Shown here is an 82-nucleotide RNA sequence from Chimaeribacter arupi, a member of the family "RybB RNA". The match comes from Rfam's covariance-model search (86 bits). About the family: This ncRNA was identified in a large scale screen of E. coli. The function of this short RNA is unknown. The exact 5' and 3' ends of this RNA are uncertain. The source organism's lineage runs through Bacteria, Gammaproteobacteria, Enterobacterales, Yersiniaceae and Chimaeribacter. The family's consensus secondary structure was predicted with PFOLD. For this family Rfam cites "Identification of novel small RNAs using comparative genomics and microarrays" (Wassarman et al., Genes Dev, 2001).
RNA sequence: ACUGCUUUUCUUUGAUGUCCCCACUUUGGAGAGCCCGAUAGUCCCGCCUGAUUACAGGUUCAAGACUACCGGGUUUUUUCUU
Numbered sequence: 001a002c003u004g005c006u007u008u009u010c011u012u013u014g015a016u017g018u019c020c021c022c023a024c025u026u027u028g029g030a031g032a033g034c035c036c037g038a039u040a041g042u043c044c045c046g047c048c049u050g051a052u053u054a055c056a057g058g059u060u061c062a063a064g065a066c067u068a069c070c071g072g073g074u075u076u077u078u079u080c081u082u
Base pairs, nucleotide, nucleotide: 032075033074034073035072036071037070039068040067041066042065043064